[Rfam]
RNA sequence: GGUUUUAACCCAAGUUAACCAAGGUUAGCAUCAAAUUCGACCUUUCUCUGAAUGUGUUGAAGUCAACUUUUGGAACCGCUUUUCCGGGGUUUCCGGAUGAGCAAA
Numbered sequence: 001g002g003u004u005u006u007a008a009c010c011c012a013a014g015u016u017a018a019c020c021a022a023g024g025u026u027a028g029c030a031u032c033a034a035a036u037u038c039g040a041c042c043u044u045u046c047u048c049u050g051a052a053u054g055u056g057u058u059g060a061a062g063u064c065a066a067c068u069u070u071u072g073g074a075a076c077c078g079c080u081u082u083u084c085c086g087g088g089g090u091u092u093c094c095g096g097a098u099g100a101g102c103a104a105a
Base pairs, nucleotide, nucleotide: 007037008036014029015028017026018025019024038059039058040057041056042054044052045051046050080103082101083100084099088094089093
Shown here is a 105-nucleotide RNA from Caenorhabditis japonica, a member of the family "SL2 RNA". The family's consensus secondary structure is taken from published work. Rfam describes the family as follows. This family represents SL2 RNA. SL2 RNA is involved in trans splicing in lower eukaryotes. Trans-splicing is a form of RNA processing. The acquisition of a spliced leader from a SL RNA is a intra-molecular reaction which precisely joins exons derived from separately transcribed RNAs. Rfam classes the family as a non-coding RNA gene. It scores 74 bits against the family's covariance model.